[Rfam]
RNA sequence: AGAAAUUUGAGAAAAUCUGACCUUAGUACGAGAGGACCGGGUUGGACGAACCUAUGGUGUACCGGUUAUGUCGCCAGAUGUACCGCCGGGUAGCUAAGUUCGGAAAGGAUAACCGCUGAAAGCAUCUAAGUGGGAAGCCCAUUUCAAGAUAAGAUUUCUAUUAGACAGCUUGUAGACCACGAGCUUGAUAGGUUGGGGGUGUAAGUGCAGUAAUGCAUUGAGCUGACCAAUACUAAUUUGUCGUUUU
Numbered sequence: 001a002g003a004a005a006u007u008u009g010a011g012a013a014a015a016u017c018u019g020a021c022c023u024u025a026g027u028a029c030g031a032g033a034g035g036a037c038c039g040g041g042u043u044g045g046a047c048g049a050a051c052c053u054a055u056g057g058u059g060u061a062c063c064g065g066u067u068a069u070g071u072c073g074c075c076a077g078a079u080g081u082a083c084c085g086c087c088g089g090g091u092a093g094c095u096a097a098g099u100u101c102g103g104a105a106a107g108g109a110u111a112a113c114c115g116c117u118g119a120a121a122g123c124a125u126c127u128a129a130g131u132g133g134g135a136a137g138c139c140c141a142u143u144u145c146a147a148g149a150u151a152a153g154a155u156u157u158c159u160a161u162u163a164g165a166c167a168g169c170u171u172g173u174a175g176a177c178c179a180c181g182a183g184c185u186u187g188a189u190a191g192g193u194u195g196g197g198g199g200u201g202u203a204a205g206u207g208c209a210g211u212a213a214u215g216c217a218u219u220g221a222g223c224u225g226a227c228c229a230a231u232a233c234u235a236a237u238u239u240g241u242c243g244u245u246u247u
Base pairs, nucleotide, nucleotide: 001159002158003157004156005155006154007153008152011145012144013143014142017045018044019043020042021041022040023039047102048101049100050099051098055096056095057094062089063088064087065086066085067082068081069080070079071078072077107139108138113133114132115131116130117129164242165241166240167239168184169183170182171181172180189235190234191233192231193230194229195228196227198224199223205218206217207216208215209214
RNA: Bacterial large subunit ribosomal RNA, nucleotides 2672 to 2918
Organism: Halobacteriovorax marinus